The record is a 144-nucleotide RNA from Lepisosteus oculatus, which matches "Small nucleolar RNA SNORD10" in Rfam. On this family, see Huttenhofer et al., EMBO J 2001: "RNomics: an experimental approach that identifies 201 candidates for novel, small, non-messenger RNAs in mouse". Pairs were carried over by alignment from the consensus structure, which was predicted with WAR. The match comes from Rfam's covariance-model search (58 bits).
RNA sequence: GCUGUGAAUGAUGAUCCCCAUGCGUGUCAACUGAUCUCGGAGCCUGCUUCAGCUCCUGUCCCCUCGCUGGCGUUCUGUCGGGUGAAGGUGUGAUCAGGGCUGGAGGGCUCUGGGGCCGUGAUCAUAGCUUUUUAGACUGACUGC
Numbered sequence: 001g002c003u004g005u006g007a008a009u010g011a012u013g014a015u016c017c018c019c020a021u022g023c024g025u026g027u028c029a030a031c032u033g034a035u036c037u038c039g040g041a042g043c044c045u046g047c048u049u050c051a052g053c054u055c056c057u058g059u060c061c062c063c064u065c066g067c068u069g070g071c072g073u074u075c076u077g078u079c080g081g082g083u084g085a086a087g088g089u090g091u092g093a094u095c096a097g098g099g100c101u102g103g104a105g106g107g108c109u110c111u112g113g114g115g116c117c118g119u120g121a122u123c124a125u126a127g128c129u130u131u132u133u134a135g136a137c138u139g140a141c142u143g144c
Base pairs, nucleotide, nucleotide: 001144002143004141047105048104049103050102051101052100053099054098055097